[Rfam]
The family of this 593-nucleotide part of an RNA is "Bacterial small subunit ribosomal RNA". Rfam links the family to the GO terms structural constituent of ribosome and ribosome.
RNA sequence: AAUAAAUUGAGUUUGAUGAUGGCUCUGAAUGAACGCUGUCCAAAUGCUUGACACAUGCUAAUCGAACGUUUAAUUUAAAUAAGGUAAUUAUAUCUUUAUUUUUAUUAAAAGUGGUGUACAGGUGAGUAUAUGAUAUUUUGGCUACCUUAGAGUAAGGAAAAAAAUACCUUAUAAUAAAAGGAGUUCUUACUCCGCUUUAAGAUGACAAUAAAUAUCGCGGAUAGGUAGUAAUUAAGGUAAUGGCUUAAUUAGCCUAAAAUUCCGUAGUCGAGGCUGAGAGGUCGAUCGACCACAUUGGGUCUGAAAAAACCCCAAUACGUAUAGUACAGCAGUGAGGAAUAUUGGUCAAUAGCCUAACGGCUGAACCAGCAACUUGGAAGAAUGUAUAGCUUCGGCUAGCUUUAUUAGGUAUAAAUAAAGAAAUUCUUUAUUUAUAUUGCUAUGUUAUAUAGACGAUAAUAAAGUAUCGACUUUGUCGAAUAAAGUUCUAGAUAAAAUAAUGAUUAUGACAAAUUUUAUCUAUGUGUCUUGACCAAAUUACGUGCCAGCAGUCGCGGUAAUACGUAAAAGACUAGUGUUAUUCAUCUUUAAUA
Numbered sequence: 001a002a003u004a005a006a007u008u009g010a011g012u013u014u015g016a017u018g019a020u021g022g023c024u025c026u027g028a029a030u031g032a033a034c035g036c037u038g039u040c041c042a043a044a045u046g047c048u049u050g051a052c053a054c055a056u057g058c059u060a061a062u063c064g065a066a067c068g069u070u071u072a073a074u075u076u077a078a079a080u081a082a083g084g085u086a087a088u089u090a091u092a093u094c095u096u097u098a099u100u101u102u103u104a105u106u107a108a109a110a111g112u113g114g115u116g117u118a119c120a121g122g123u124g125a126g127u128a129u130a131u132g133a134u135a136u137u138u139u140g141g142c143u144a145c146c147u148u149a150g151a152g153u154a155a156g157g158a159a160a161a162a163a164a165u166a167c168c169u170u171a172u173a174a175u176a177a178a179a180g181g182a183g184u185u186c187u188u189a190c191u192c193c194g195c196u197u198u199a200a201g202a203u204g205a206c207a208a209u210a211a212a213u214a215u216c217g218c219g220g221a222u223a224g225g226u227a228g229u230a231a232u233u234a235a236g237g238u239a240a241u242g243g244c245u246u247a248a249u250u251a252g253c254c255u256a257a258a259a260u261u262c263c264g265u266a267g268u269c270g271a272g273g274c275u276g277a278g279a280g281g282u283c284g285a286u287c288g289a290c291c292a293c294a295u296u297g298g299g300u301c302u303g304a305a306a307a308a309a310c311c312c313c314a315a316u317a318c319g320u321a322u323a324g325u326a327c328a329g330c331a332g333u334g335a336g337g338a339a340u341a342u343u344g345g346u347c348a349a350u351a352g353c354c355u356a357a358c359g360g361c362u363g364a365a366c367c368a369g370c371a372a373c374u375u376g377g378a379a380g381a382a383u384g385u386a387u388a389g390c391u392u393c394g395g396c397u398a399g400c401u402u403u404a405u406u407a408g409g410u411a412u413a414a415a416u417a418a419a420g421a422a423a424u425u426c427u428u429u430a431u432u433u434a435u436a437u438u439g440c441u442a443u444g445u446u447a448u449a450u451a452g453a454c455g456a457u458a459a460u461a462a463a464g465u466a467u468c469g470a471c472u473u474u475g476u477c478g479a480a481u482a483a484a485g486u487u488c489u490a491g492a493u494a495a496a497a498u499a500a501u502g503a504u505u506a507u508g509a510c511a512a513a514u515u516u517u518a519u520c521u522a523u524g525u526g527u528c529u530u531g532a533c534c535a536a537a538u539u540a541c542g543u544g545c546c547a548g549c550a551g552u553c554g555c556g557g558u559a560a561u562a563c564g565u566a567a568a569a570g571a572c573u574a575g576u577g578u579u580a581u582u583c584a585u586c587u588u589u590a591a592u593a
Stems, first nucleotide, its partner, number of pairs: 009025005027583004032579006039378005045371002047336001052334003056331003061115003066112002069108002081096006122293003131217008142204001146201007154170004180193005218264003224254003229251008267290004272283004295314001297312004317325002342368001344367003350363005381403001387398004407523001408520004413515001423504003526572005538567005548555002